[Rfam]
RNA sequence: GUCCAGUCUGAGUACAAUGGUGUUUACAACUAAAUGAUCACAACCACUUACAGAUUUCUUUGUUCCUUCUUUACUCCCACUGCUUCACUUGACCAGCCUUAA
Numbered sequence: 001g002u003c004c005a006g007u008c009u010g011a012g013u014a015c016a017a018u019g020g021u022g023u024u025u026a027c028a029a030c031u032a033a034a035u036g037a038u039c040a041c042a043a044c045c046a047c048u049u050a051c052a053g054a055u056u057u058c059u060u061u062g063u064u065c066c067u068u069c070u071u072u073a074c075u076c077c078c079a080c081u082g083c084u085u086c087a088c089u090u091g092a093c094c095a096g097c098c099u100u101a102a
Stems, first nucleotide, its partner, number of pairs: 001098001003096001006093003010090002016081001018079003022076001028064003032060002